[Rfam]
RNA sequence: AAAAGGAGCAAUACAUCUUUCUUGUUCUAUCAAGAGAGCGAUAUUGCUCCUUUUUUUAUU
Numbered sequence: 001a002a003a004a005g006g007a008g009c010a011a012u013a014c015a016u017c018u019u020u021c022u023u024g025u026u027c028u029a030u031c032a033a034g035a036g037a038g039c040g041a042u043a044u045u046g047c048u049c050c051u052u053u054u055u056u057u058a059u060u
Stems, first nucleotide, its partner, number of pairs: 002053012014040001019036006
Record summary:
A member of the RNA family "Plastid-psbA-3 3UTR RNA", 60 nucleotides long. Rfam classes the family as a cis-regulatory element. The base pairs follow the family's consensus structure, which was predicted with LocARNA.